[Rfam]
RNA sequence: CAAAUGGACAUCUAGGGUUCCGGCUGUGAUUGAUUCAACUUAUAUCGAUUCAAAAACAGUGACUGGACCGAGAGUUGUCAACCUCAACUGAGGUCACACGGCGGGAUAAAAGCCCGGGAGGC
Dot-bracket structure: ......((((.(..((...((((((((............................)))))..).)).))....).)))).(((((....)))))..(.[...(((.......))).)..]..
Numbered sequence: 001c002a003a004a005u006g007g008a009c010a011u012c013u014a015g016g017g018u019u020c021c022g023g024c025u026g027u028g029a030u031u032g033a034u035u036c037a038a039c040u041u042a043u044a045u046c047g048a049u050u051c052a053a054a055a056a057c058a059g060u061g062a063c064u065g066g067a068c069c070g071a072g073a074g075u076u077g078u079c080a081a082c083c084u085c086a087a088c089u090g091a092g093g094u095c096a097c098a099c100g101g102c103g104g105g106a107u108a109a110a111a112g113c114c115c116g117g118g119a120g121g122c
Stems, first nucleotide, its partner, number of pairs: 007079004012074001015069002020066002022063001023060005081094005097117001099120001103115003